Rfam assigns this 119-nucleotide RNA from Streptomyces boncukensis to the family "Streptomyces-metK RNA".
It scores 94 bits against the family's covariance model.
The organism belongs to Streptomyces, within Bacteria.
By type it is a small RNA.
The base pairs follow the family's consensus structure, which is taken from published work.

RNA sequence: UCGAGAGUCAGUGAUUGGAAUCCCCGGAGGAUGGAUAAACUGGCCGCGGACCGUGCUUGGGCGCAGCCCCCGAUCCGGUCCGCAAAUGCUCAGCCAGCAGCCGCUGCAACCCCAGGGAG
Number, nucleotide and partner (000 for none) at each position: 001u000002c000003g000004a000005g000006a000007g000008u000009c000010a000011g000012u000013g000014a000015u000016u000017g000018g000019a000020a000021u000022c000023c000024c000025c000026g000027g000028a000029g000030g000031a000032u000033g000034g000035a000036u000037a000038a000039a000040c000041u000042g000043g000044c000045c000046g000047c000048g081049g080050a079051c078052c077053g076054u000055g000056c000057u000058u072059g071060g070061g069062c000063g000064c000065a000066g000067c000068c000069c061070c060071c059072g058073a000074u000075c000076c053077g052078g051079u050080c049081c048082g000083c000084a000085a000086a000087u000088g000089c000090u000091c000092a000093g000094c000095c106096a105097g104098c103099a000100g000101c000102c000103g098104c097105u096106g095107c000108a000109a000110c000111c000112c000113c000114a000115g000116g000117g000118a000119g000